[Rfam]
RNA sequence: GUAAGUGGUGUAGAUGAAACAAAUUUACCAACAAUUUUGUUGGAUUGUUUCACCUAUCGUUCCAUUUGCAG
Numbered sequence: 001g002u003a004a005g006u007g008g009u010g011u012a013g014a015u016g017a018a019a020c021a022a023a024u025u026u027a028c029c030a031a032c033a034a035u036u037u038u039g040u041u042g043g044a045u046u047g048u049u050u051c052a053c054c055u056a057u058c059g060u061u062c063c064a065u066u067u068g069c070a071g
Stems, first nucleotide, its partner, number of pairs: 001069008010057004015052008028043006
Shown here is a 71-nucleotide sequence from Drosophila melanogaster, a member of the family "mir-1010 microRNA precursor family". It is one of the family's seed sequences. The organism belongs to Sophophora, within Eukaryota. The base pairs follow the family's consensus structure, which was predicted with RNAalifold.